Source information
This 132-nucleotide sequence from Callorhinchus milii belongs to the Rfam family "Small Cajal body specific RNA 8". The family has 22 seed sequences and 955 matches in Rfam 15.1. The match comes from Rfam's covariance-model search (102 bits). Rfam classes the family as a small Cajal body RNA. The source organism's lineage runs through Eukaryota, Craniata, Gnathostomata, Chimaeriformes and Callorhinchus. Gene Ontology terms of the family: nucleolus, Cajal body and RNA processing. From the family's description: scaRNAs are a specific class of small nuclear RNAs which localise to the Cajal bodies and guide the modification of RNA polymerase II transcribed spliceosomal RNAs U1, U2, U4, U5 and U12. U92 belong to the H/ACA box class of guide RNAs as it has the predicted hairpin-hinge-hairpin-tail structure, conserved H/ACA-box motifs and is found associated with GAR1.

RNA sequence: UGGGAGGCUGAUACGCAAUUGGAGCCAAGUCUACUCCAGUUGUCGCUUAUUUCUCCCUAGAGUAAAAUGAGCCUUCUGAUGACCGAGUCGAAUUGAGAGAAAUUGGAGCGGACAGAUACGAGGCUAACAUUA
Number, nucleotide and partner (000 for none) at each position: 001u000002g057003g056004g055005a054006g053007g052008c000009u000010g000011a000012u000013a000014c000015g043016c042017a041018a040019u000020u000021g000022g036023a035024g034025c000026c000027a000028a000029g000030u000031c000032u000033a000034c024035u023036c022037c000038a000039g000040u018041u017042g016043u015044c000045g000046c000047u000048u000049a000050u000051u000052u007053c006054u005055c004056c003057c002058u000059a000060g000061a000062g000063u000064a000065a000066a000067a000068u126069g000070a125071g124072c123073c122074u121075u120076c000077u000078g000079a000080u000081g000082a000083c111084c110085g109086a000087g000088u106089c105090g104091a103092a000093u000094u000095g000096a000097g000098a000099g000100a000101a000102a000103u091104u090105g089106g088107a000108g000109c085110g084111g083112a000113c000114a000115g000116a000117u000118a000119c000120g075121a074122g073123g072124c071125u070126a068127a000128c000129a000130u000131u000132a000